[Rfam]
Rfam assigns this 115-nucleotide RNA from Tatumella morbirosei to the family "RtT RNA".
The organism belongs to Tatumella, within Bacteria.
This family represents a bacterial cis-regulatory element known as RtT RNA. The exact function of RtT is unknown although it is thought that it may be involved in changing the cellular response in relation to amino acid starvation.
The base pairs follow the family's consensus structure, which is taken from published work.
A reference for the family is Bosl and Kersten (1991), "A novel RNA product of the tyrT operon of Escherichia coli", Nucleic Acids Res.

RNA sequence: UACGUCCGGAGUUUAAAGAGGAUGAGAACCUCCGAAGGAGGUUUGAGCCGGGCGUCAGCGAGACAACGUUGCUUCAGCAACGGUCCGCAGGGGCAUCAUCCUCUCCCGCCGACCA
Numbered sequence: 001u002a003c004g005u006c007c008g009g010a011g012u013u014u015a016a017a018g019a020g021g022a023u024g025a026g027a028a029c030c031u032c033c034g035a036a037g038g039a040g041g042u043u044u045g046a047g048c049c050g051g052g053c054g055u056c057a058g059c060g061a062g063a064c065a066a067c068g069u070u071g072c073u074u075c076a077g078c079a080a081c082g083g084u085c086c087g088c089a090g091g092g093g094c095a096u097c098a099u100c101c102u103c104u105c106c107c108g109c110c111g112a113c114c115a
Base pairs, nucleotide, nucleotide: 017104018103019102020101021100023098042089044087045086049060050059067082068081069080070079071078072077